[Rfam]
RNA sequence: CGGAAAAGCAUCAUUGAGUGCAGCGUUGAUGAAUUCCAAUUUCCAAUCACCACUGUUGUAAUUUUGCUCUUGUAAAGAAAUGUGAGUUGAUUUCGUCCGCGCUGCACUCAAUUAUGUUUUUA
Numbered sequence: 001c002g003g004a005a006a007a008g009c010a011u012c013a014u015u016g017a018g019u020g021c022a023g024c025g026u027u028g029a030u031g032a033a034u035u036c037c038a039a040u041u042u043c044c045a046a047u048c049a050c051c052a053c054u055g056u057u058g059u060a061a062u063u064u065u066g067c068u069c070u071u072g073u074a075a076a077g078a079a080a081u082g083u084g085a086g087u088u089g090a091u092u093u094c095g096u097c098c099g100c101g102c103u104g105c106a107c108u109c110a111a112u113u114a115u116g117u118u119u120u121u122a
Stems, first nucleotide, its partner, number of pairs: 006119006013112014028097001030095003
The family of this 122-nucleotide sequence from Nelumbo nucifera is "MIR397 microRNA precursor family". The literature on the family includes a 2009 paper in BMC Genomics by Mica et al., "High throughput approaches reveal splicing of primary microRNA transcripts and tissue specific expression of mature microRNAs in Vitis vinifera". Pairs were carried over by alignment from the consensus structure, which was predicted with WAR. Taxonomically the source falls in Nelumbo (Eukaryota, Euphyllophyta, Mesangiospermae, Nelumbonaceae).